[Rfam]
RNA sequence: ACCUUCUUGUCAAAGCACUGUGCUAAAAUUGCAGAAAUCAAGGCUGAGCUUUGGUUUCUGUAAUAAUGCUAGUAGAGUACACGCAAGAAGAAGAACAAUGAUGCACUGGAUCGAAAAUGACUGGGGUGGACCUCUUUCUUAAUGUCCAGUGUCCUGUGUCUUAAGAUUUGGUGCAACAGUU
Numbered sequence: 001a002c003c004u005u006c007u008u009g010u011c012a013a014a015g016c017a018c019u020g021u022g023c024u025a026a027a028a029u030u031g032c033a034g035a036a037a038u039c040a041a042g043g044c045u046g047a048g049c050u051u052u053g054g055u056u057u058c059u060g061u062a063a064u065a066a067u068g069c070u071a072g073u074a075g076a077g078u079a080c081a082c083g084c085a086a087g088a089a090g091a092a093g094a095a096c097a098a099u100g101a102u103g104c105a106c107u108g109g110a111u112c113g114a115a116a117a118u119g120a121c122u123g124g125g126g127u128g129g130a131c132c133u134c135u136u137u138c139u140u141a142a143u144g145u146c147c148a149g150u151g152u153c154c155u156g157u158g159u160c161u162u163a164a165g166a167u168u169u170g171g172u173g174c175a176a177c178a179g180u181u
Stems, first nucleotide, its partner, number of pairs: 018077002021074005028067004034058002037055008102175009123152001125150001127148004
RNA: Small nucleolar RNA SNORA81
Organism: Penelope pileata